Shown here is a 68-nucleotide RNA from Actinomadura sp. KC345, a member of the family "ASdes TB sRNA". For this family Rfam cites "Identification of small RNAs in Mycobacterium tuberculosis" (Arnvig and Young, Mol Microbiol, 2009). Taxonomically the source falls in Actinomadura (Bacteria, Actinomycetota, Actinomycetes, Thermomonosporaceae). It is annotated as a small RNA. A search with the family's covariance model found it, with a score of 73 bits. The family has 26 seed sequences and 1,192 matches in Rfam 15.1.

RNA sequence: AGCGCGACCGGGUCGACGGCGCGCGUGACGGUCAGGUAGUCGCGCAGAGCGACGCCGUGCCGGUUCUC
Numbered sequence: 001a002g003c004g005c006g007a008c009c010g011g012g013u014c015g016a017c018g019g020c021g022c023g024c025g026u027g028a029c030g031g032u033c034a035g036g037u038a039g040u041c042g043c044g045c046a047g048a049g050c051g052a053c054g055c056c057g058u059g060c061c062g063g064u065u066c067u068c
Stems, first nucleotide, its partner, number of pairs: 005062002008059001012029002016026003035056003040052004
Dot-bracket structure: ....((.(...((..(((.....))).)).....(((..((((.....)))).)))..).))......